[Rfam]
RNA: Guanidine-I riboswitch aptamer
Organism: Bacillus subtilis
RNA sequence: UGUAAAGUUUUCUAGGGUUCCGCAUGUCAAUUGACAUGGACUGGUCCGAGAGAAAACACAUACGCGUAAAUAGAAGCGCGUAUGCACACGGAGGGAAAAAAGCCCGGGAGAG
Numbered sequence: 001u002g003u004a005a006a007g008u009u010u011u012c013u014a015g016g017g018u019u020c021c022g023c024a025u026g027u028c029a030a031u032u033g034a035c036a037u038g039g040a041c042u043g044g045u046c047c048g049a050g051a052g053a054a055a056a057c058a059c060a061u062a063c064g065c066g067u068a069a070a071u072a073g074a075a076g077c078g079c080g081u082a083u084g085c086a087c088a089c090g091g092a093g094g095g096a097a098a099a100a101a102g103c104c105c106g107g108g109a110g111a112g
Stems, first nucleotide, its partner, number of pairs: 007057006015047002020044002022041001023038006059084009087107001089110001093105003